[Rfam]
RNA sequence: CAAUCGGCCCUUUUCAGGGCCAACAAAUGGUUACUUAAAAGUUAUU
Number, nucleotide and partner (000 for none) at each position: 001c000002a000003a000004u000005c000006g021007g020008c019009c018010c017011u016012u000013u000014u000015c000016a011017g010018g009019g008020c007021c006022a000023a000024c000025a000026a000027a000028u000029g000030g000031u000032u000033a000034c000035u000036u000037a000038a000039a000040a000041g000042u000043u000044a000045u000046u000

Overview:
This 46-nucleotide RNA sequence from Aedes aegypti belongs to the Rfam family "Histone 3' UTR stem-loop". NCBI's taxonomy places the organism under Eukaryota, Altocrustacea, Pterygota, Diptera, Stegomyia. The mRNAs of metazoan histone genes lack a poly-A tail. 3' end processing occurs at a site between a highly conserved stem-loop (modelled by this family) and a purine rich region around 20 nts downstream (the histone downstream element, or HDE). The stem-loop is bound by a 31 kDa stem-loop binding protein (SLBP - also termed the histone hairpin binding protein, or HBP). Together with U7 snRNA binding of the HDE, SLBP binding nucleate s the formation of the processing complex. The histone 3' UTR stem-loop is also involved in nucleocytoplasmic transport of the mRNA, and in stability regulation and translation efficiency in the cytoplasm. The literature on the family includes a 1995 paper in Nucleic Acids Res by Williams and Marzluff, "The sequence of the stem and flanking sequences at the 3' end of histone mRNA are critical determinants for the binding of the stem-loop binding protein". The family has 50 seed sequences and 44,596 matches in Rfam 15.1. Rfam classes the family as a cis-regulatory element.